[Rfam]
RNA sequence: UCUGUUGUGAAGCGGAAUCUGAAGGAAGCCGGAAGCAAACCUCUGCCCCGGGGAAUACAAACCGCAUCAGGCAUAACCGGUGGGAUGAGAUUGCCAAACAAAUCGAAGUCCAAAGAUUACACGGAGACCGGGAUGUAAAUGCGGCGGGGACAUGGAGGGAAAGUUAUUUGA
Numbered sequence: 001u002c003u004g005u006u007g008u009g010a011a012g013c014g015g016a017a018u019c020u021g022a023a024g025g026a027a028g029c030c031g032g033a034a035g036c037a038a039a040c041c042u043c044u045g046c047c048c049c050g051g052g053g054a055a056u057a058c059a060a061a062c063c064g065c066a067u068c069a070g071g072c073a074u075a076a077c078c079g080g081u082g083g084g085a086u087g088a089g090a091u092u093g094c095c096a097a098a099c100a101a102a103u104c105g106a107a108g109u110c111c112a113a114a115g116a117u118u119a120c121a122c123g124g125a126g127a128c129c130g131g132g133a134u135g136u137a138a139a140u141g142c143g144g145c146g147g148g149g150a151c152a153u154g155g156a157g158g159g160a161a162a163g164u165u166a167u168u169u170g171a
Stems, first nucleotide, its partner, number of pairs: 001016006029170001031168002035164002040158006046149005062144005071136003077131005083111004089104004
Background
A member of the RNA family "Group II catalytic intron D1-D4-3" from Prolixibacter sp. SD074, 171 nucleotides long.